Rfam assigns this 43-nucleotide RNA sequence from Bacillus mesophilum to the family "Ribosomal protein L19 leader". Rfam's curators write: This family is a putative r-protein leader autoregulatory structure found in B. subtilis and other low-GC Gram-positive bacteria. It is located in the 5' untranslated regions of mRNAs encoding ribosomal protein L19 (rplS). The organism belongs to Bacillus, within Bacteria. Pairs were carried over by alignment from the consensus structure, which was predicted with CMfinder.
[Rfam]
RNA sequence: ACGAUGUUCCGCUGCAAAUAGAAAUGUUGUGCAUGAGCGUCUG
Numbered sequence: 001a002c003g004a005u006g007u008u009c010c011g012c013u014g015c016a017a018a019u020a021g022a023a024a025u026g027u028u029g030u031g032c033a034u035g036a037g038c039g040u041c042u043g
Stems, first nucleotide, its partner, number of pairs: 003041007013033004018028001
For this family Rfam cites "Diverse mechanisms for regulating ribosomal protein synthesis in Escherichia coli" (Zengel and Lindahl, Prog Nucleic Acid Res Mol Biol, 1994).